RNA sequence: ACGGACCUACGGGGCCGUAUAACCAAUACGAUCAACUGAUCGUUUAAAAACGGAAGACAGAAA
Dot-bracket structure: ((((.(((...)))))))...........((((....))...))...................